[Rfam]
Shown here is a 208-nucleotide RNA, a member of the family "IS605-orfB-I RNA".

RNA sequence: GCCUUAUAAAUAUGUAUUAAACGCAAGACAGUUUAGCAUAUCCCUUUAAGGUGAAUUAAGAUUUUAGAAGCAUAAAUUGAACUCUUGUUGCGUAGCUGAUAAGUUGAAACAAGAUAGAUUUAUGUGGAGUAGGUUAACCGUAAGACCUUAAGUUGAAAAGCUUUAAAGUUGAUUUUAUUAGUUUUUAUAGCUAAUAAAUUACGGUUCU
Numbered sequence: 001g002c003c004u005u006a007u008a009a010a011u012a013u014g015u016a017u018u019a020a021a022c023g024c025a026a027g028a029c030a031g032u033u034u035a036g037c038a039u040a041u042c043c044c045u046u047u048a049a050g051g052u053g054a055a056u057u058a059a060g061a062u063u064u065u066a067g068a069a070g071c072a073u074a075a076a077u078u079g080a081a082c083u084c085u086u087g088u089u090g091c092g093u094a095g096c097u098g099a100u101a102a103g104u105u106g107a108a109a110c111a112a113g114a115u116a117g118a119u120u121u122a123u124g125u126g127g128a129g130u131a132g133g134u135u136a137a138c139c140g141u142a143a144g145a146c147c148u149u150a151a152g153u154u155g156a157a158a159a160g161c162u163u164u165a166a167a168g169u170u171g172a173u174u175u176u177a178u179u180a181g182u183u184u185u186u187a188u189a190g191c192u193a194a195u196a197a198a199u200u201a202c203g204g205u206u207c208u
Base pairs, nucleotide, nucleotide: 001052002051003050004049005048006047008045010041011040012039013038014037015036018035019034020033021032022031023029070125071124072123073122074121075120076119077118083114084113085112086111087110088109089108094105095104097102131148132147133146134145135144137205138204139203140202141201142200143169150163151162152161153160154159174198175197176196177195178194179193180192181191182190183189